Background: A member of the RNA family "Bacteroidetes FopS (family of paralogous sRNAs)" from Bacteroides graminisolvens, 74 nucleotides long. The source organism's lineage runs through Bacteria, Bacteroidota, Bacteroidia, Bacteroides and Bacteroides graminisolvens.

[Rfam]
RNA sequence: GUUUUUUUUCAUAGGAUUAGAUUUUAAGGUUAACAAAAGGAUAAGCUGCCCGUGAGGGUGGCUUUUUCUUUUUC
Number, nucleotide and partner (000 for none) at each position: 001g000002u000003u000004u000005u000006u000007u000008u000009u000010c000011a000012u000013a000014g000015g000016a000017u000018u000019a000020g000021a000022u000023u000024u000025u000026a000027a000028g000029g000030u000031u000032a000033a000034c000035a000036a000037a000038a000039g000040g000041a000042u000043a000044a000045g062046c061047u060048g059049c058050c057051c056052g000053u000054g000055a000056g051057g050058g049059u048060g047061g046062c045063u000064u000065u000066u000067u000068c000069u000070u000071u000072u000073u000074c000

On this family, see Ruttiger et al., Nat Commun 2025: "The global RNA-binding protein RbpB is a regulator of polysaccharide utilization in Bacteroides thetaiotaomicron".